nadA riboswitch: a 75-nucleotide sequence.

RNA sequence: GCUUUCAACAUCCCCGUUUCAGGAUGAGCCCGAGGGCGCUGCAAGGCGCACGCGUUCGUGCCUGGAGCUGAAAGC
Numbered sequence: 001g002c003u004u005u006c007a008a009c010a011u012c013c014c015c016g017u018u019u020c021a022g023g024a025u026g027a028g029c030c031c032g033a034g035g036g037c038g039c040u041g042c043a044a045g046g047c048g049c050a051c052g053c054g055u056u057c058g059u060g061c062c063u064g065g066a067g068c069u070g071a072a073a074g075c
Stems, first nucleotide, its partner, number of pairs: 001075007016068007026057004031052002
Rfam classes the family as a small RNA.
Pairs were carried over by alignment from the consensus structure, which is taken from published work.
The literature on the family includes a 2020 paper in RNA by Huang et al., "Structure and ligand binding of the ADP-binding domain of the NAD(+) riboswitch".